This 82-nucleotide RNA sequence from Histophilus somni belongs to the Rfam family "Aggregatibacter sRNA 69". For this family Rfam cites "Small RNA repertoires and their intraspecies variation in Aggregatibacter actinomycetemcomitans" (Oogai et al., DNA Res, 2017). The family's consensus secondary structure was predicted with RNAfold. Validated by RT-PCR. Has Rho-independent terminator. Rfam classes the family as a small RNA.
RNA sequence: UACAUAAUGGUGAUUAUAGUUGCUAUUUUUUUGAAGACGAACAAUAAUAGUGUGCCGAUAAGCAAGAACAAAUGAUUUUUGC
Numbered sequence: 001u002a003c004a005u006a007a008u009g010g011u012g013a014u015u016a017u018a019g020u021u022g023c024u025a026u027u028u029u030u031u032u033g034a035a036g037a038c039g040a041a042c043a044a045u046a047a048u049a050g051u052g053u054g055c056c057g058a059u060a061a062g063c064a065a066g067a068a069c070a071a072a073u074g075a076u077u078u079u080u081g082c
Base pairs, nucleotide, nucleotide: 008065010063011062015058021052022051023050024049025048026047027046030044031043066077067076069074